Overview
The record is an 83-nucleotide RNA sequence from Photobacterium leiognathi, which matches "tRNA" in Rfam. Gene Ontology term of the family: triplet codon-amino acid adaptor activity. It is one of the family's seed sequences. The base pairs follow the family's consensus structure, which is taken from published work. The family's RNA type in Rfam is transfer RNA.
RNA sequence: GCGGAAGUGGCGGAAUUGGUAGACGCACUAGAUUUAGGUUCAUGCGCCUGUAAGGUGUGAGAGUUCAAGUCUCUCCUUCCGCA
Number, nucleotide and partner (000 for none) at each position: 001g082002c081003g080004g079005a078006a077007g076008u000009g000010g026011c025012g024013g000014a000015a000016u000017u000018g000019g000020u000021a000022g000023a000024c012025g011026c010027a000028c044029u000030a000031g041032a040033u000034u000035u000036a000037g000038g000039u000040u032041c031042a000043u000044g028045c000046g000047c000048c000049u000050g000051u000052a000053a000054g000055g000056u000057g000058u000059g075060a074061g073062a072063g071064u000065u000066c000067a000068a000069g000070u000071c063072u062073c061074u060075c059076c007077u006078u005079c004080c003081g002082c001083a000